RNA sequence: CGCACAAAGCGUAUGAUGAAAAAGCACCAAAACCGACUCCGUAUGAAGAGCAUUCAAUCCAACACUGAGCUUUGUGUC
Numbered sequence: 001c002g003c004a005c006a007a008a009g010c011g012u013a014u015g016a017u018g019a020a021a022a023a024g025c026a027c028c029a030a031a032a033c034c035g036a037c038u039c040c041g042u043a044u045g046a047a048g049a050g051c052a053u054u055c056a057a058u059c060c061a062a063c064a065c066u067g068a069g070c071u072u073u074g075u076g077u078c
Stems, first nucleotide, its partner, number of pairs: 002077009

The record is a 78-nucleotide RNA sequence from Merops nubicus, which matches "Small nucleolar RNA SNORD69" in Rfam. Rfam describes the family as follows. snoRNA HBII-210 belongs to the C/D family of snoRNAs. It is the human orthologue of the mouse MBII-210 and is predicted to guide the 2'O-ribose methylation of large 28S rRNA on residue G4464. It scores 41 bits against the family's covariance model. Pairs were carried over by alignment from the consensus structure. For this family Rfam cites "RNomics: an experimental approach that identifies 201 candidates for novel, small, non-messenger RNAs in mouse" (Huttenhofer et al., EMBO J, 2001).